[Rfam]
RNA: Purine riboswitch aptamer
RNA sequence: UUACACAGCAUCCAAACCCUUCAUAUAAUUUCGGAAAUAAGGUUCGAAAGUUCAUACCAAAUCACCGGAUAAAUGAUUUGACUAUGAGGGAAGAAUAUAAAUGA
Numbered sequence: 001u002u003a004c005a006c007a008g009c010a011u012c013c014a015a016a017c018c019c020u021u022c023a024u025a026u027a028a029u030u031u032c033g034g035a036a037a038u039a040a041g042g043u044u045c046g047a048a049a050g051u052u053c054a055u056a057c058c059a060a061a062u063c064a065c066c067g068g069a070u071a072a073a074u075g076a077u078u079u080g081a082c083u084a085u086g087a088g089g090g091a092a093g094a095a096u097a098u099a100a101a102u103g104a
Stems, first nucleotide, its partner, number of pairs: 018090008029049007058080007